[Rfam]
Nucleotides: 052
Stems, first nucleotide, its partner, number of pairs: 005026003009020002034052003038049003
Number, partner (000 for none) and nucleotide at each position: 001000g002000g003000g004000u005026g006025u007024c008000a009020g010019c011000g012000c013000a014000u015000u016000c017000g018000c019010g020009c021000c022000a023000g024007g025006g026005c027000a028000g029000g030000u031000a032000u033000g034052c035051g036050u037000c038049g039048g040047u041000c042000g043000g044000g045000c046000c047040g048039c049038c050036a051035c052034g

The record is a 52-nucleotide RNA sequence from Haliea sp., which matches "nhaA-I RNA" in Rfam. The source organism's lineage runs through Bacteria, Pseudomonadota, Gammaproteobacteria, Halieaceae and Haliea. About the family: Acidobacteria, Alphaproteobacteria, Betaproteobacteria and Gammaproteobacteria, Verrucomicrobia, cand. division NC10.